RNA sequence: UUCUUAUCAAGAGAGAUUGAGGGACAGGCCCUAAGACAUCUCGGCAACAGGUUCAAGCGAUUGGAUACUGUGCUAAUUCCUGCAAAUGCAGCGUGCAUUUGAAAGAUGAGAA
Number, nucleotide and partner (000 for none) at each position: 001u112002u111003c110004u109005u108006a107007u106008c105009a000010a000011g000012a000013g042014a041015g040016a039017u038018u000019g000020a000021g031022g030023g029024a000025c082026a081027g080028g079029c023030c022031c021032u000033a000034a000035g000036a000037c000038a017039u016040c015041u014042c013043g074044g073045c072046a071047a000048c070049a069050g000051g066052u065053u064054c063055a000056a000057g000058c000059g000060a000061u000062u000063g054064g053065a052066u051067a000068c000069u049070g048071u046072g045073c044074u043075a000076a000077u000078u104079c028080c027081u026082g025083c101084a100085a099086a098087u097088g096089c000090a000091g000092c000093g000094u000095g000096c088097a087098u086099u085100u084101g083102a000103a000104a078105g008106a007107u006108g005109a004110g003111a002112a001